Small nucleolar RNA SNORA1: a 144-nucleotide sequence from Phyllostomus discolor. ACA1 is a member of the H/ACA class of snoRNA that guide the sites of modification of uridines to pseudouridines. It is annotated as an H/ACA-box small nucleolar RNA. Taxonomically the source falls in Phyllostomus (Eukaryota, Eumetazoa, Craniata, Laurasiatheria). Its family is annotated with RNA processing and nucleolus in the Gene Ontology.
[Rfam]
RNA sequence: AGUUUUAUAAGAGAUACUGAUGAAAGUGGGCACUGUUUUUGUACGUGGUGUCCUGAAAUGGUUCAUGUGGCUGCACUGAGACACAGGUUAUGCUUCUGUUGAGGUCAUUUUAUUACAAUGGUGACAGUGAGACUUGUAACAUUU
Numbered sequence: 001a002g003u004u005u006u007a008u009a010a011g012a013g014a015u016a017c018u019g020a021u022g023a024a025a026g027u028g029g030g031c032a033c034u035g036u037u038u039u040u041g042u043a044c045g046u047g048g049u050g051u052c053c054u055g056a057a058a059u060g061g062u063u064c065a066u067g068u069g070g071c072u073g074c075a076c077u078g079a080g081a082c083a084c085a086g087g088u089u090a091u092g093c094u095u096c097u098g099u100u101g102a103g104g105u106c107a108u109u110u111u112a113u114u115a116c117a118a119u120g121g122u123g124a125c126a127g128u129g130a131g132a133c134u135u136g137u138a139a140c141a142u143u144u
Base pairs, nucleotide, nucleotide: 002071003070004069006067007066008065028053029052030051031050032049033048083137084136085135086134087133097123098122099121100120101119
Dot-bracket structure: .(((.(((...................((((((..............))))))...........))).)))...........(((((.........(((((.................))))).........))))).......